Shown here is a 99-nucleotide RNA sequence from Microcebus murinus, a member of the family "Y RNA". The family's RNA type in Rfam is non-coding RNA gene. Rfam's curators write: Y RNAs are components of the Ro ribonucleoprotein particle (Ro RNP), in association with Ro60 and La proteins. The family's consensus secondary structure is taken from published work. It scores 66 bits against the family's covariance model. Lineage of the source: Eukaryota > Bilateria > Vertebrata > Amniota > Microcebus. For this family Rfam cites "Evolution of the vertebrate Y RNA cluster" (Mosig et al., Theory Biosci, 2007).
RNA sequence: GGCUGGUCCGAGUGCAGUGGUGUUUACAACUAAUUGAUCACAACCAGUUACAGAUUCUUUUGAUUCUCCAAUCCCGCUGCUUCACUUGACUAGCCUAAA
Numbered sequence: 001g002g003c004u005g006g007u008c009c010g011a012g013u014g015c016a017g018u019g020g021u022g023u024u025u026a027c028a029a030c031u032a033a034u035u036g037a038u039c040a041c042a043a044c045c046a047g048u049u050a051c052a053g054a055u056u057c058u059u060u061u062g063a064u065u066c067u068c069c070a071a072u073c074c075c076g077c078u079g080c081u082u083c084a085c086u087u088g089a090c091u092a093g094c095c096u097a098a099a
Base pairs, nucleotide, nucleotide: 001095002094003093004092005091006090007089008088010087011086014083016078017077018076019075020074022073032060033059